[Rfam]
RNA: Bacterial RNase P class A
RNA sequence: GAAGUUGGUCGGAUGGUCGCUGGAAGUUUACUUUCAGAGGAAAGUCCGGGCUCCACAGAGCAAAGUGCUAGCUAACGGCUAGGUAUGGUGACAUAACGGAAAGUGCUGCAGAGAUUUAGACCGCCUAUUUCGAUAGGUAAGGGUGAGAAGGUGCGGUAAGAGCGCACCGCGCGUUUGGUGACAACCGUGGCAAGGUAAACCCCACUUGGAGCAAGCUCAAAUAGGCUACCCAUGGUGCGGCUCGCACAAGGUAGCGGGUAGAGUGCUAAAGAGUAUUGGCAACAAUGCUCGUAGAUGAAUGACCAUCUAUUACAGAACCCGGCUUAUAGACUAACUUCACCU
Numbered sequence: 001g002a003a004g005u006u007g008g009u010c011g012g013a014u015g016g017u018c019g020c021u022g023g024a025a026g027u028u029u030a031c032u033u034u035c036a037g038a039g040g041a042a043a044g045u046c047c048g049g050g051c052u053c054c055a056c057a058g059a060g061c062a063a064a065g066u067g068c069u070a071g072c073u074a075a076c077g078g079c080u081a082g083g084u085a086u087g088g089u090g091a092c093a094u095a096a097c098g099g100a101a102a103g104u105g106c107u108g109c110a111g112a113g114a115u116u117u118a119g120a121c122c123g124c125c126u127a128u129u130u131c132g133a134u135a136g137g138u139a140a141g142g143g144u145g146a147g148a149a150g151g152u153g154c155g156g157u158a159a160g161a162g163c164g165c166a167c168c169g170c171g172c173g174u175u176u177g178g179u180g181a182c183a184a185c186c187g188u189g190g191c192a193a194g195g196u197a198a199a200c201c202c203c204a205c206u207u208g209g210a211g212c213a214a215g216c217u218c219a220a221a222u223a224g225g226c227u228a229c230c231c232a233u234g235g236u237g238c239g240g241c242u243c244g245c246a247c248a249a250g251g252u253a254g255c256g257g258g259u260a261g262a263g264u265g266c267u268a269a270a271g272a273g274u275a276u277u278g279g280c281a282a283c284a285a286u287g288c289u290c291g292u293a294g295a296u297g298a299a300u301g302a303c304c305a306u307c308u309a310u311u312a313c314a315g316a317a318c319c320c321g322g323c324u325u326a327u328a329g330a331c332u333a334a335c336u337u338c339a340c341c342u
Stems, first nucleotide, its partner, number of pairs: 001338010011327001012307007020037007042325003046322005051211004058243004063207005068082005083097001084095004098202002103200002105196003121142002123138006150168006169191001170189004175184003215264004225255006235247004271290008